[Rfam]
RNA: Small nucleolar RNA SNORA51
Organism: Marmota marmota
RNA sequence: GGCCUCAGGGUGCAUUUUGCCGUCUGUGUUCUUACAAUGACUGUAUAGAAAAAAAGAGGCAGAGCAUAUGUGCCCCAGCCUGGGAUCUGUGCCUGGUCUGUAAUGUGAAUGGAGACACACAG
Numbered sequence: 001g002g003c004c005u006c007a008g009g010g011u012g013c014a015u016u017u018u019g020c021c022g023u024c025u026g027u028g029u030u031c032u033u034a035c036a037a038u039g040a041c042u043g044u045a046u047a048g049a050a051a052a053a054a055a056g057a058g059g060c061a062g063a064g065c066a067u068a069u070g071u072g073c074c075c076c077a078g079c080c081u082g083g084g085a086u087c088u089g090u091g092c093c094u095g096g097u098c099u100g101u102a103a104u105g106u107g108a109a110u111g112g113a114g115a116c117a118c119a120c121a122g
Stems, first nucleotide, its partner, number of pairs: 002060005020043001022041001027036003065111003076100003080096005